[Rfam]
Nucleotides: 262
Stems, first nucleotide, its partner, number of pairs: 007108002015103004025091006038076003049072006111181007183195003211224004230258003240255005
Number, partner (000 for none) and nucleotide at each position: 001000a002000a003000a004000a005000a006000g007108g008107c009000a010000a011000a012000g013000a014000a015103g016102a017101u018100g019000a020000a021000a022000g023000u024000a025091g026090g027089u028088u029087a030086u031000u032000u033000u034000u035000u036000c037000c038076c039075g040074a041000c042000a043000g044000a045000g046000a047000g048000a049072g050071g051070c052069a053068g054067u055000c056000a057000u058000g059000g060000g061000c062000u063000g064000u065000a066000a067054g068053c069052u070051g071050c072049c073000u074040u075039c076038g077000g078000u079000u080000c081000c082000u083000a084000g085000a086030a087029u088028a089027a090026c091025u092000g093000a094000a095000u096000u097000u098000c099000c100018c101017a102016u103015c104000a105000g106000a107008g108007c109000u110000g111181u112180c113179u114178c115177u116176u117175u118000g119000a120000a121000a122000a123000a124000a125000g126000c127000u128000u129000a130000g131000u132000g133000u134000a135000g136000a137000g138000g139000a140000a141000u142000a143000u144000u145000u146000u147000u148000c149000u150000a151000a152000a153000g154000a155000c156000a157000c158000a159000a160000g161000c162000a163000c164000u165000a166000g167000u168000u169000u170000u171000a172000g173000u174000a175117g176116a177115a178114g179113a180112g181111a182000a183195c184194g185193u186000a187000a188000g189000a190000u191000g192000u193185a194184c195183g196000u197000u198000a199000c200000a201000c202000a203000u204000g205000a206000g207000a208000g209000u210000g211224c212223c213222u214221g215000g216000g217000c218000u219000u220000a221214c222213a223212g224211g225000a226000a227000u228000u229000u230258g231257g232256g233000u234000g235000g236000u237000a238000c239000c240255g241254c242253g243252g244251a245000u246000a247000u248000g249000a250000c251244u252243u253242c254241g255240u256232c257231c258230c259000u260000u261000u262000u